This 74-nucleotide sequence from Octodon degus belongs to the Rfam family "mir-3473 microRNA precursor family".
Rfam links the family to the GO terms miRNA-mediated post-transcriptional gene silencing, RISC complex and cellular response to mechanical stimulus.
The match comes from Rfam's covariance-model search (72 bits).
Rfam 15.1 lists 1,094 matches to the family in 20 species.
Lineage of the source: Eukaryota > Opisthokonta > Amniota > Rodentia > Octodon.
RNA sequence: UCUACUGAGCUAUCUUCCCAGCCCUUCAAAUAUAUACUUUUAAAAAUUAGGGGCUGGGGAGAUAGCUCAGUAGA
Numbered sequence: 001u002c003u004a005c006u007g008a009g010c011u012a013u014c015u016u017c018c019c020a021g022c023c024c025u026u027c028a029a030a031u032a033u034a035u036a037c038u039u040u041u042a043a044a045a046a047u048u049a050g051g052g053g054c055u056g057g058g059g060a061g062a063u064a065g066c067u068c069a070g071u072a073g074a
Stems, first nucleotide, its partner, number of pairs: 002073023
Dot-bracket structure: .(((((((((((((((((((((((..........................))))))))))))))))))))))).